[Rfam]
RNA sequence: UUUACUUUAUGAAGAAGCUUCCUGAAACCAUUCUGAGGGGAGUUUCUGAUGGAACUGUAAA
Numbered sequence: 001u002u003u004a005c006u007u008u009a010u011g012a013a014g015a016a017g018c019u020u021c022c023u024g025a026a027a028c029c030a031u032u033c034u035g036a037g038g039g040g041a042g043u044u045u046c047u048g049a050u051g052g053a054a055c056u057g058u059a060a061a
Stems, first nucleotide, its partner, number of pairs: 001061005014046010029035002
Rfam assigns this 61-nucleotide RNA sequence from Danionella cerebrum to the family "Selenocysteine insertion sequence 1". A search with the family's covariance model found it, with a score of 39 bits. By type it is a cis-regulatory element. On this family, see Walczak et al., RNA 1996: "A novel RNA structural motif in the selenocysteine insertion element of eukaryotic selenoprotein mRNAs". Its family is annotated with selenocysteine incorporation in the Gene Ontology. NCBI's taxonomy places the organism under Eukaryota, Chordata, Craniata, Ostariophysi, Danionella.